[Rfam]
RNA sequence: CAACUUACCUGGCAGGGGACACCAUGUCAUAGAAGGUGGUUCACCCAGGGCGAGGCUUGGCCAUUGCACUCCGCAUCGACCCAUGCGAAUUCCCCAAAUGUGGGAAUCUCGACGGCAUAAUUUGGGUAGUGGGGACUGCGUUUCGCGCCUCCCCU
Numbered sequence: 001c002a003a004c005u006u007a008c009c010u011g012g013c014a015g016g017g018g019a020c021a022c023c024a025u026g027u028c029a030u031a032g033a034a035g036g037u038g039g040u041u042c043a044c045c046c047a048g049g050g051c052g053a054g055g056c057u058u059g060g061c062c063a064u065u066g067c068a069c070u071c072c073g074c075a076u077c078g079a080c081c082c083a084u085g086c087g088a089a090u091u092c093c094c095c096a097a098a099u100g101u102g103g104g105a106a107u108c109u110c111g112a113c114g115g116c117a118u119a120a121u122u123u124g125g126g127u128a129g130u131g132g133g134g135a136c137u138g139c140g141u142u143u144c145g146c147g148c149c150u151c152c153c154c155u
Stems, first nucleotide, its partner, number of pairs: 012116002015113001016046003019041001021040005047084001049082002052080001054077002062073001086111003089107003093103002131154005137147004

The record is a 155-nucleotide sequence from Etheostoma spectabile, which matches "U1 spliceosomal RNA" in Rfam. Lineage of the source: Eukaryota > Metazoa > Euteleosteomorpha > Euacanthomorphacea > Oligocephalus. By type it is a spliceosomal small nuclear RNA. About the family: U1 is a small nuclear RNA (snRNA) component of the spliceosome (involved in pre-mRNA splicing).